[Rfam]
Rfam assigns this 34-nucleotide sequence to the family "DUF805b RNA". Clan: DUF805 clan. The base pairs follow the family's consensus structure, which is taken from published work.
RNA sequence: ACGGAGGAACCGAAAAUCCGGAAAAGAGUAGGGG
Numbered sequence: 001a002c003g004g005a006g007g008a009a010c011c012g013a014a015a016a017u018c019c020g021g022a023a024a025a026g027a028g029u030a031g032g033g034g
Stems, first nucleotide, its partner, number of pairs: 002020004010032002
By type it is a cis-regulatory element.